Background: The family of this 275-nucleotide sequence from Ascochyta lentis is "A. fumigatus sRNA Afu_309". On this family, see Jochl et al., Nucleic Acids Res 2008: "Small ncRNA transcriptome analysis from Aspergillus fumigatus suggests a novel mechanism for regulation of protein synthesis". The family's RNA type in Rfam is small RNA. The match comes from Rfam's covariance-model search (92 bits).
[Rfam]
RNA sequence: CUCUCCCCAACAGCCUGUGCCCGUUUUCCUGUCCAUCCUCCGGGGUGUGUUCAGUUGAGAGCUGGCAGUUCGUUCGUGACCAUGGAGCCGUCUUGAGCAGUGGACGUCAAUUUCCGAACGACAGGCUGGAGAGCAAGUCGGCGCGUCGCUGGAAGCCUGAGUUCGCCGUAAGGUUUGAGCUCGGUGGAAGGCGCGUGCCAGGCAGACUGAUUCCUGUUCCCUUUUGCUAGACCGUCGGUCUAUGACGCUUGGGACAAACCCAGUUGGCUACAUAC
Numbered sequence: 001c002u003c004u005c006c007c008c009a010a011c012a013g014c015c016u017g018u019g020c021c022c023g024u025u026u027u028c029c030u031g032u033c034c035a036u037c038c039u040c041c042g043g044g045g046u047g048u049g050u051u052c053a054g055u056u057g058a059g060a061g062c063u064g065g066c067a068g069u070u071c072g073u074u075c076g077u078g079a080c081c082a083u084g085g086a087g088c089c090g091u092c093u094u095g096a097g098c099a100g101u102g103g104a105c106g107u108c109a110a111u112u113u114c115c116g117a118a119c120g121a122c123a124g125g126c127u128g129g130a131g132a133g134c135a136a137g138u139c140g141g142c143g144c145g146u147c148g149c150u151g152g153a154a155g156c157c158u159g160a161g162u163u164c165g166c167c168g169u170a171a172g173g174u175u176u177g178a179g180c181u182c183g184g185u186g187g188a189a190g191g192c193g194c195g196u197g198c199c200a201g202g203c204a205g206a207c208u209g210a211u212u213c214c215u216g217u218u219c220c221c222u223u224u225u226g227c228u229a230g231a232c233c234g235u236c237g238g239u240c241u242a243u244g245a246c247g248c249u250u251g252g253g254a255c256a257a258a259c260c261c262a263g264u265u266g267g268c269u270a271c272a273u274a275c
Base pairs, nucleotide, nucleotide: 011128012127013126014125015124016123017122018121019066020065021064023062025060026059027058028057029054030053031052034049035048037045038044075120076119077118080116083109084108085107087105089103141196142195143194144193145192146191157183159182160181161180162179163178164177166173167172202268203267205265206264207263208262209261218254219253220252221251226248227247230240231239232238233237